The record is a 75-nucleotide RNA sequence from Pongo pygmaeus, which matches "mir-610 microRNA precursor family" in Rfam.
It is one of the family's seed sequences.
Pairs were carried over by alignment from the consensus structure, which was predicted with RNAalifold.
The source organism's lineage runs through Eukaryota, Eumetazoa, Primates, Hominoidea and Pongo.
[Rfam]
RNA sequence: GUCUUAGGUGAGCUAAAUGUGUGCUGGGACACAUUUGAGCCAAACGUCCCAGCACAGAUUUAGCUCACAUAAGAA
Numbered sequence: 001g002u003c004u005u006a007g008g009u010g011a012g013c014u015a016a017a018u019g020u021g022u023g024c025u026g027g028g029a030c031a032c033a034u035u036u037g038a039g040c041c042a043a044a045c046g047u048c049c050c051a052g053c054a055c056a057g058a059u060u061u062a063g064c065u066c067a068c069a070u071a072a073g074a075a
Base pairs, nucleotide, nucleotide: 002074003073004072005071006070008068009067010066011065012064013063014062015061016060017059018058020056021055022054023053024052025051026050027049028048029047030046034044035043036042037041